[Rfam]
RNA sequence: GGGUGGCUCUACAUUUGUUGCGGGUUCGAGACCCGUCAGAGCGAAAGCUCUGUAGCUCAAUGGUAGAGCGGUGUAGUCACC
Numbered sequence: 001g002g003g004u005g006g007c008u009c010u011a012c013a014u015u016u017g018u019u020g021c022g023g024g025u026u027c028g029a030g031a032c033c034c035g036u037c038a039g040a041g042c043g044a045a046a047g048c049u050c051u052g053u054a055g056c057u058c059a060a061u062g063g064u065a066g067a068g069c070g071g072u073g074u075a076g077u078c079a080c081c
Stems, first nucleotide, its partner, number of pairs: 002081007012073004020036006027063001037052006055069004
Overview:
A member of the RNA family "Y RNA-like" from Salmonella enterica, 81 nucleotides long. Rfam describes the family as follows. In Deinococcus radiodurans Rsr is tethered via Y RNA to the exoribonuclease PNPase and channels single-stranded RNA into the PNPase cavity. Rsr and Y RNA enhance degradation of structured RNAs by PNPase. The literature on the family includes a 2013 paper in Cell by Chen et al., "An RNA degradation machine sculpted by Ro autoantigen and noncoding RNA". NCBI's taxonomy places the organism under Bacteria, Enterobacteriaceae, Salmonella, Salmonella enterica, Salmonella enterica subsp. enterica.